[Rfam]
This 68-nucleotide RNA sequence from Pseudoprevotella muciniphila belongs to the Rfam family "Bacteroidetes FopS (family of paralogous sRNAs)". NCBI's taxonomy places the organism under Bacteria, Pseudomonadati, Bacteroidia, Bacteroidales, Pseudoprevotella. On this family, see Ruttiger et al., Nat Commun 2025: "The global RNA-binding protein RbpB is a regulator of polysaccharide utilization in Bacteroides thetaiotaomicron". The family's RNA type in Rfam is small RNA.

RNA sequence: GUGUUUUUCAUAAUAUUAGAUUUAAGGUUAACAAGGUUGGGUUACAGCGGUAACCCAUUUUUUUAUUU
Numbered sequence: 001g002u003g004u005u006u007u008u009c010a011u012a013a014u015a016u017u018a019g020a021u022u023u024a025a026g027g028u029u030a031a032c033a034a035g036g037u038u039g040g041g042u043u044a045c046a047g048c049g050g051u052a053a054c055c056c057a058u059u060u061u062u063u064u065a066u067u068u
Base pairs, nucleotide, nucleotide: 039056040055041054042053043052044051045050